[Rfam]
The record is a 160-nucleotide RNA sequence from Castor canadensis, which matches "Small Cajal body specific RNA 1" in Rfam. A search with the family's covariance model found it, with a score of 168 bits. Rfam describes the family as follows. scaRNAs are a specific class of small nuclear RNAs which localise to the Cajal bodies and guide the modification of RNA polymerase II transcribed spliceosomal RNAs U1, U2, U4, U5 and U12. ACA35 belong to the H/ACA box class of guide RNAs as it has the predicted hairpin-hinge-hairpin-tail structure, conserved H/ACA-box motifs and is found associated with GAR1. It is predicted to guide pseudouridylation of the U2 spliceosomal snRNA at residue U89. Taxonomically the source falls in Castor (Eukaryota, Opisthokonta, Deuterostomia, Sarcopterygii). The literature on the family includes a 2002 paper in EMBO J by Darzacq et al., "Cajal body-specific small nuclear RNAs: a novel class of 2'-O-methylation and pseudouridylation guide RNAs". It is annotated as a small Cajal body RNA. Its family is annotated with RNA processing, Cajal body and nucleolus in the Gene Ontology.

RNA sequence: CAGCACUCGAUACUAACCAAGCUAUCUAUAUCCUAGUCUGUGUCAAAGGCUUGUGAUAUGUUGUGAUAGCUGGGUUGAAGAAGUGCAAUAUUAAAAGCCAUGAGGUUUUUAAGCCCAGUGUGUAAAGACACACUCUGAGUUAUAACUCAUAGGCACAACU
Numbered sequence: 001c002a003g004c005a006c007u008c009g010a011u012a013c014u015a016a017c018c019a020a021g022c023u024a025u026c027u028a029u030a031u032c033c034u035a036g037u038c039u040g041u042g043u044c045a046a047a048g049g050c051u052u053g054u055g056a057u058a059u060g061u062u063g064u065g066a067u068a069g070c071u072g073g074g075u076u077g078a079a080g081a082a083g084u085g086c087a088a089u090a091u092u093a094a095a096a097g098c099c100a101u102g103a104g105g106u107u108u109u110u111a112a113g114c115c116c117a118g119u120g121u122g123u124a125a126a127g128a129c130a131c132a133c134u135c136u137g138a139g140u141u142a143u144a145a146c147u148c149a150u151a152g153g154c155a156c157a158a159c160u
Stems, first nucleotide, its partner, number of pairs: 003086005015076004020071007027060006033053001035051005097154003118133006134151001136149005